[Rfam]
RNA sequence: GUACAAUCCUCGGCAGUGUCCUGAGACUGUAU
Number, nucleotide and partner (000 for none) at each position: 001g032002u031003a030004c029005a028006a000007u026008c000009c025010u024011c023012g021013g020014c018015a000016g000017u000018g014019u000020c013021c012022u000023g011024a010025g009026a007027c000028u005029g004030u003031a002032u001
RNA: Iron response element II